The record is an 82-nucleotide RNA, which matches "freshwater-2 RNA" in Rfam. The sequence is in the family's curated seed alignment. Rfam classes the family as a cis-regulatory element.

RNA sequence: UGCCGGCAAAAAACGGCUUAUGGGGACACCACCCCGUACCCAGGAGAACUGGGAUAGGACUUCUUGAAGGAGAAAACAAAUG
Numbered sequence: 001u002g003c004c005g006g007c008a009a010a011a012a013a014c015g016g017c018u019u020a021u022g023g024g025g026a027c028a029c030c031a032c033c034c035c036g037u038a039c040c041c042a043g044g045a046g047a048a049c050u051g052g053g054a055u056a057g058g059a060c061u062u063c064u065u066g067a068a069g070g071a072g073a074a075a076a077c078a079a080a081u082g
Base pairs, nucleotide, nucleotide: 002017003016004015005014019038020037021036022035023034024033025032039053040052041051042050